GA-cis RNA: an 88-nucleotide RNA sequence. It is one of the family's seed sequences. Pairs were carried over by alignment from the consensus structure, which is taken from published work.

[Rfam]
RNA sequence: GAGCAGAGGGCGCAUAUGAACGAAGUUCAUAUUUAGGAUCGGUUCCGACGACCAGCCGCCGAACAGAUGUGAGGGGGCAUUACAUAUU
Numbered sequence: 001g002a003g004c005a006g007a008g009g010g011c012g013c014a015u016a017u018g019a020a021c022g023a024a025g026u027u028c029a030u031a032u033u034u035a036g037g038a039u040c041g042g043u044u045c046c047g048a049c050g051a052c053c054a055g056c057c058g059c060c061g062a063a064c065a066g067a068u069g070u071g072a073g074g075g076g077g078c079a080u081u082a083c084a085u086a087u088u
Base pairs, nucleotide, nucleotide: 001044002043004041015031016030017029018028019027020026055078056077057076059074060073063070064069